[Rfam]
RNA sequence: UUUCACCGAUCCGAGCCACAGGGGUGAGUCGUCGGUGUGCUCCCGCCCGUAGGUGGCCAGCAGCGCCUGUGCUUC
Numbered sequence: 001u002u003u004c005a006c007c008g009a010u011c012c013g014a015g016c017c018a019c020a021g022g023g024g025u026g027a028g029u030c031g032u033c034g035g036u037g038u039g040c041u042c043c044c045g046c047c048c049g050u051a052g053g054u055g056g057c058c059a060g061c062a063g064c065g066c067c068u069g070u071g072c073u074u075c
Base pairs, nucleotide, nucleotide: 015025016024017023033069038065039064043060045058047056048055049054
Dot-bracket structure: ..............(((.....))).......(....((...(.(.(((....))).).)...))...)......
A member of the RNA family "ASpks TB sRNA" from Streptomyces sp. VN1, 75 nucleotides long. By type it is an antisense RNA.